[Rfam]
RNA sequence: UGAGGCCUAUGAUGAUUUAAUGAUUUGCCUACAUUGUCUGAUUUGCAUAUAAUGAUGGAGGAAUCUGAAAACUGUUACUGAGGCCACA
Numbered sequence: 001u002g003a004g005g006c007c008u009a010u011g012a013u014g015a016u017u018u019a020a021u022g023a024u025u026u027g028c029c030u031a032c033a034u035u036g037u038c039u040g041a042u043u044u045g046c047a048u049a050u051a052a053u054g055a056u057g058g059a060g061g062a063a064u065c066u067g068a069a070a071a072c073u074g075u076u077a078c079u080g081a082g083g084c085c086a087c088a
Stems, first nucleotide, its partner, number of pairs: 001088002004085004
RNA: Small nucleolar RNA SNORD34